[Rfam]
RNA sequence: GCUUUUAAAAGGCAAACCAUUCGAAAGAGUGGGACGCAAAGUGAACGAUCUAAAGGUAUAGACAACCAAAGAUGGCCGCGCUGCAAAG
Dot-bracket structure: ...........((...((((((....))))))...))..((((...((((....(((.......)))...)))..)..))))......
Numbered sequence: 001g002c003u004u005u006u007a008a009a010a011g012g013c014a015a016a017c018c019a020u021u022c023g024a025a026a027g028a029g030u031g032g033g034a035c036g037c038a039a040a041g042u043g044a045a046c047g048a049u050c051u052a053a054a055g056g057u058a059u060a061g062a063c064a065a066c067c068a069a070a071g072a073u074g075g076c077c078g079c080g081c082u083g084c085a086a087a088g
Stems, first nucleotide, its partner, number of pairs: 012037002017032006040082004047076001048073003055067003
c-di-GMP-I riboswitch aptamer: an 88-nucleotide RNA from Nitrosomonas sp. Nm51.
It scores 63 bits against the family's covariance model.
Pairs were carried over by alignment from the consensus structure, which is taken from published work.